Record summary: Shown here is a 179-nucleotide RNA sequence from Robinsoniella sp. RHS, a member of the family "Lysine riboswitch aptamer". Taxonomically the source falls in Robinsoniella (Bacteria, Bacillati, Clostridia, Lachnospirales).

RNA sequence: AGGUUUGAUAGAGGUCGCGUGUUUCAUCAGUAUAGAAUUGGAUAUGUUCAGGCAUAGAUGAAGAUUUUAGAAAGGGAAAGACGCCGAAAGGUGCGGUACCUGUAGCCGUAUUCUUGGGCAUGUGGCGAAAAGCUAUAUGACUGUCAUCAUAAUUUUUAUGAUGGGGAGCUAUCCAAAAG
Numbered sequence: 001a002g003g004u005u006u007g008a009u010a011g012a013g014g015u016c017g018c019g020u021g022u023u024u025c026a027u028c029a030g031u032a033u034a035g036a037a038u039u040g041g042a043u044a045u046g047u048u049c050a051g052g053c054a055u056a057g058a059u060g061a062a063g064a065u066u067u068u069a070g071a072a073a074g075g076g077a078a079a080g081a082c083g084c085c086g087a088a089a090g091g092u093g094c095g096g097u098a099c100c101u102g103u104a105g106c107c108g109u110a111u112u113c114u115u116g117g118g119c120a121u122g123u124g125g126c127g128a129a130a131a132g133c134u135a136u137a138u139g140a141c142u143g144u145c146a147u148c149a150u151a152a153u154u155u156u157u158a159u160g161a162u163g164g165g166g167a168g169c170u171a172u173c174c175a176a177a178a179g
Stems, first nucleotide, its partner, number of pairs: 007173005017084004022079004033069007088115003091111007116142002119139008144164007